[Rfam]
RNA sequence: UUUCUCUGGUUUCUCUUCAGAUUGUAUAAAUCUUUUGCCUUUUACUAAAGAUUUCAGUGGAGAAGAACGUUUAGUCUGUCAAAUAUAUGUUUAAUGUUAAUAAAUCGUUA
Numbered sequence: 001u002u003u004c005u006c007u008g009g010u011u012u013c014u015c016u017u018c019a020g021a022u023u024g025u026a027u028a029a030a031u032c033u034u035u036u037g038c039c040u041u042u043u044a045c046u047a048a049a050g051a052u053u054u055c056a057g058u059g060g061a062g063a064a065g066a067a068c069g070u071u072u073a074g075u076c077u078g079u080c081a082a083a084u085a086u087a088u089g090u091u092u093a094a095u096g097u098u099a100a101u102a103a104a105u106c107g108u109u110a
Base pairs, nucleotide, nucleotide: 004074009068010067011066012065014063015062016061017060018059019058028054029053030052031051032050033049034048035047098110099109100108

The family of this 110-nucleotide sequence from Platysternon megacephalum is "U5 spliceosomal RNA". Lineage of the source: Eukaryota > Deuterostomia > Craniata > Tetrapoda > Platysternon. It scores 56 bits against the family's covariance model.